[Rfam]
RNA sequence: CUACUAAGCCAGAUAAUCGCGGGCAGCGCAGGCUGUCUGAGGAAAGUCCGAGCUCCGCAGAGCAGGGUGCCGGGUAACGCCCGGUGGAGGUGACUCCAAGGCAAGUGCAACAGAAAGUAAACCGCCGGCCUGGCCGGUAAGGAUGAAAGGGUGAGGUAAGAGCUCACCAGUGGCGAGAGUAAUCCGUCAGCUAUGUAAACCCCACCUGGUGCAAGACCAAGAACGGAUGUAAAAAAGGCGGCUGCUCGUCGCCGUCCAAAUGGUAGGUCGCUUGAAUCCAUUGGUAACAAUGAAUCUAGACAGAUGAUUAUCUAAGACAGAACUCGGCUUACAGACUUAGUAACAUG
Number, nucleotide and partner (000 for none) at each position: 001c000002u342003a341004c340005u339006a338007a337008g336009c000010c334011a000012g312013a311014u310015a309016a308017u307018c306019g000020c039021g038022g037023g036024c035025a034026g033027c032028g000029c000030a000031g000032g027033c026034u025035g024036u023037c022038u021039g020040a000041g000042g000043a000044a330045a329046g328047u000048c327049c326050g325051a324052g323053c211054u000055c209056c208057g000058c000059a000060g247061a246062g245063c244064a000065g207066g206067g205068u204069g203070c084071c083072g082073g081074g080075u000076a000077a000078c000079g000080c074081c073082c072083g071084g070085u099086g097087g096088a095089g094090g000091u000092g000093a000094c089095u088096c087097c086098a000099a085100g202101g201102c000103a000104a000105g200106u199107g196108c195109a194110a000111c000112a000113g000114a000115a000116a000117g000118u000119a000120a000121a000122c142123c141124g138125c137126c136127g135128g134129c133130c000131u000132g000133g129134c128135c127136g126137g125138u124139a000140a000141g123142g122143a000144u000145g000146a000147a000148a000149g000150g168151g167152u166153g165154a164155g163156g000157u000158a000159a000160g000161a000162g000163c155164u154165c153166a152167c151168c150169a000170g191171u189172g188173g187174c186175g185176a000177g184178a183179g000180u000181a000182a000183u178184c177185c175186g174187u173188c172189a171190g000191c170192u000193a000194u109195g108196u107197a000198a000199a106200c105201c101202c100203c069204a068205c067206c066207u065208g056209g055210u000211g053212c000213a000214a000215g269216a268217c267218c266219a000220a000221g000222a000223a000224c000225g257226g256227a255228u000229g000230u000231a000232a000233a000234a000235a000236a000237g000238g252239c251240g250241g249242c248243u000244g063245c062246u061247c060248g242249u241250c240251g239252c238253c000254g000255u227256c226257c225258a000259a000260a000261u000262g000263g000264u000265a000266g218267g217268u216269c215270g000271c000272u000273u000274g000275a000276a295277u294278c000279c292280a291281u290282u289283g288284g000285u000286a000287a000288c283289a282290a281291u280292g279293a000294a277295u276296c000297u000298a000299g000300a000301c000302a000303g000304a000305u000306g018307a017308u016309u015310a014311u013312c012313u000314a000315a000316g000317a000318c000319a000320g000321a000322a000323c052324u051325c050326g049327g048328c046329u045330u044331a000332c000333a000334g010335a000336c008337u007338u006339a005340g004341u003342a002343a000344c000345a000346u000347g000
Background:
Bacterial RNase P class A: a 347-nucleotide RNA from Eubacterium callanderi. The match comes from Rfam's covariance-model search (278 bits).